[Rfam]
RNA: terC RNA
RNA sequence: CACACGGGCCGGGCCCCUCUGGCAGGCAAGGCGUUGCCUGUGAUGUCGGACCGACGAC
Numbered sequence: 001c002a003c004a005c006g007g008g009c010c011g012g013g014c015c016c017c018u019c020u021g022g023c024a025g026g027c028a029a030g031g032c033g034u035u036g037c038c039u040g041u042g043a044u045g046u047c048g049g050a051c052c053g054a055c056g057a058c
Stems, first nucleotide, its partner, number of pairs: 006052002009049004022041008